[Rfam]
RNA: Metazoan signal recognition particle RNA
Organism: Scophthalmus maximus
RNA sequence: GUCGGGUGCGGUGGCGCGCGCCUGUAAUCCAAGUCACCGGGAGGCUGAGGCUGGAGGAUCGUUUGAGCUCAGGAGCUCUGAGCCGCUGCGGACUAUGUCGAUCGGGUGUCCGCACUAAGUUCAGUAUCGAUAUGGUGAUCCUGGGGGAGCCCGGGACCACCAGGUCGCCUAAGGAGGGGUGCACCGGCCCAGGUCGGAGACGGAGCAGGCCAAAGCCCCCGUGCCGCUCAGUAGUGGGAUCGCACCUGAGAAUAGACGCGGCGGUGCAGCCUGAGCAAUACAAUGAGACACAGUCUCUU
Numbered sequence: 001g002u003c004g005g006g007u008g009c010g011g012u013g014g015c016g017c018g019c020g021c022c023u024g025u026a027a028u029c030c031a032a033g034u035c036a037c038c039g040g041g042a043g044g045c046u047g048a049g050g051c052u053g054g055a056g057g058a059u060c061g062u063u064u065g066a067g068c069u070c071a072g073g074a075g076c077u078c079u080g081a082g083c084c085g086c087u088g089c090g091g092a093c094u095a096u097g098u099c100g101a102u103c104g105g106g107u108g109u110c111c112g113c114a115c116u117a118a119g120u121u122c123a124g125u126a127u128c129g130a131u132a133u134g135g136u137g138a139u140c141c142u143g144g145g146g147g148a149g150c151c152c153g154g155g156a157c158c159a160c161c162a163g164g165u166c167g168c169c170u171a172a173g174g175a176g177g178g179g180u181g182c183a184c185c186g187g188c189c190c191a192g193g194u195c196g197g198a199g200a201c202g203g204a205g206c207a208g209g210c211c212a213a214a215g216c217c218c219c220c221g222u223g224c225c226g227c228u229c230a231g232u233a234g235u236g237g238g239a240u241c242g243c244a245c246c247u248g249a250g251a252a253u254a255g256a257c258g259c260g261g262c263g264g265u266g267c268a269g270c271c272u273g274a275g276c277a278a279u280a281c282a283a284u285g286a287g288a289c290a291c292a293g294u295c296u297c298u299u
Stems, first nucleotide, its partner, number of pairs: 001045003004023007028042003047297007059286005067276007078269003082265009093255004098250001102249008110238002113236005119229001122226001124224004128167004133162005139156007168174002176219005186211004194203003